This 101-nucleotide RNA from Lederbergia lenta belongs to the Rfam family "Purine riboswitch aptamer".
The base pairs follow the family's consensus structure, which is taken from published work.
Its family is annotated with purine nucleobase biosynthetic process in the Gene Ontology.
Riboswitches are metabolite binding domains within certain messenger RNAs that serve as precision sensors for their corresponding targets. Allosteric rearrangement of mRNA structure is mediated by ligand binding, and this results in modulation of gene expression. A class of riboswitches that selectively recognises guanine and becomes saturated at concentrations as low as 5 nM. In Bacillus subtilis, this mRNA motif is located on at least five separate transcriptional units that together encode 17 genes that are mostly involved in purine transport and purine nucleotide biosynthesis. It has also been shown that some members of this family are specific for adenine instead. Hence this family are termed purine riboswitches.
The source organism's lineage runs through Bacteria, Bacillota, Caryophanales, Bacillaceae and Lederbergia.
RNA sequence: UGUAAUUGUUGAACAAGGCCUCGUAUAUCAUGGGAAUAGGGCCCAUACGUAUCUACCCAAUUACCGUAAAUAAUUGGACUAUGAGGAAAGUGGAAUUUGGG
Numbered sequence: 001u002g003u004a005a006u007u008g009u010u011g012a013a014c015a016a017g018g019c020c021u022c023g024u025a026u027a028u029c030a031u032g033g034g035a036a037u038a039g040g041g042c043c044c045a046u047a048c049g050u051a052u053c054u055a056c057c058c059a060a061u062u063a064c065c066g067u068a069a070a071u072a073a074u075u076g077g078a079c080u081a082u083g084a085g086g087a088a089a090g091u092g093g094a095a096u097u098u099g100g101g
Stems, first nucleotide, its partner, number of pairs: 019086007030046005057077007